[Rfam]
A member of the RNA family "mir-9/mir-79 microRNA precursor family" from Caenorhabditis remanei, 85 nucleotides long. Gene Ontology terms of the family: miRNA-mediated post-transcriptional gene silencing and RISC complex. The family's consensus secondary structure was predicted with RNAalifold. A reference for the family is Lagos-Quintana et al. (2001), "Identification of novel genes coding for small expressed RNAs", Science.

RNA sequence: AGUUUCCGAUCUUUGGUGAUUCAGCUUAAAUGAUAGACUCAAUAUGUUAGACUUCAUAAAGCUAGGUUACCAAAGCUCGGCGGCC
Numbered sequence: 001a002g003u004u005u006c007c008g009a010u011c012u013u014u015g016g017u018g019a020u021u022c023a024g025c026u027u028a029a030a031u032g033a034u035a036g037a038c039u040c041a042a043u044a045u046g047u048u049a050g051a052c053u054u055c056a057u058a059a060a061g062c063u064a065g066g067u068u069a070c071c072a073a074a075g076c077u078c079g080g081c082g083g084c085c
Base pairs, nucleotide, nucleotide: 002084003083004082007079008078009077011075012074013073014072015071016070017069018068019067020066021065023063024062025061026060030057031056032055033054